[Rfam]
RNA: Manganese Mn2+ riboswitch aptamer (yybP-ykoY)
RNA sequence: ACACCAGUCAUUGGGGAGUAGCCUGUUCCAGAAGACUUCUGGAAAAUUCGUAUCAACAUACUCGUUUGCAUAAAACGUGGUACGAAUGCCAAAUCGGUUGGCAAGACCAUAGACACAUAACGUCACCAUUGGUUGGGGGUGAUUUAUGUGUAUGUGGAAUCACCCAACCGAGGUU
Numbered sequence: 001a002c003a004c005c006a007g008u009c010a011u012u013g014g015g016g017a018g019u020a021g022c023c024u025g026u027u028c029c030a031g032a033a034g035a036c037u038u039c040u041g042g043a044a045a046a047u048u049c050g051u052a053u054c055a056a057c058a059u060a061c062u063c064g065u066u067u068g069c070a071u072a073a074a075a076c077g078u079g080g081u082a083c084g085a086a087u088g089c090c091a092a093a094u095c096g097g098u099u100g101g102c103a104a105g106a107c108c109a110u111a112g113a114c115a116c117a118u119a120a121c122g123u124c125a126c127c128a129u130u131g132g133u134u135g136g137g138g139g140u141g142a143u144u145u146a147u148g149u150g151u152a153u154g155u156g157g158a159a160u161c162a163c164c165c166a167a168c169c170g171a172g173g174u175u
Base pairs, nucleotide, nucleotide: 026044027043028042029041030040046087047086048085049084050083051082052081053080054079055078063077064076065075066074067073092175093174094173